A member of the RNA family "U1 spliceosomal RNA" from Chanos chanos, 166 nucleotides long.
Its family is annotated with U1 snRNP, pre-mRNA 5'-splice site binding and mRNA 5'-splice site recognition in the Gene Ontology.
A search with the family's covariance model found it, with a score of 132 bits.
[Rfam]
Nucleotides: 166
Base pairs, nucleotide, nucleotide: 012123013122014121015120016048017047018046020044021043023042024041025040026039049090051088052087054086056083057082058081060079061078062077063076064075092118094116095114096113097112099110139165140164141163142162143161145160148157149156
Number, partner (000 for none) and nucleotide at each position: 001000a002000u003000a004000c005000u006000u007000u008000c009000c010000u011000g012123g013122c014121a015120g016048g017047g018046g019000a020044g021043a022000c023042a024041c025040c026039a027000g028000g029000a030000u031000c032000a033000u034000g035000a036000a037000g038000g039026u040025g041024g042023u043021u044020c045000a046018c047017c048016c049090a050000g051088g052087g053000u054086g055000a056083g057082g058081c059000u060079u061078a062077g063076c064075c065000a066000u067000u068000g069000c070000a071000c072000u073000u074000a075064g076063g077062c078061u079060a080000u081058g082057c083056u084000g085000a086054c087052c088051c089000g090049u091000g092118c093000a094116a095114a096113u097112u098000c099110c100000c101000c102000u103000a104000a105000a106000u107000g108000c109000a110099g111000g112097a113096a114095u115000c116094u117000c118092g119000a120015c121014u122013g123012c124000a125000u126000a127000a128000u129000u130000u131000g132000u133000g134000g135000u136000a137000g138000u139165g140164g141163g142162g143161g144000g145160g146000c147000u148157g149156c150000a151000u152000u153000c154000u155000c156149g157148c158000u159000c160145u161143c162142c163141c164140c165139c166000a
The base pairs follow the family's consensus structure, which is taken from published work. Lineage of the source: Eukaryota > Bilateria > Clupeocephala > Ostariophysi > Chanos. Rfam classes the family as a spliceosomal small nuclear RNA.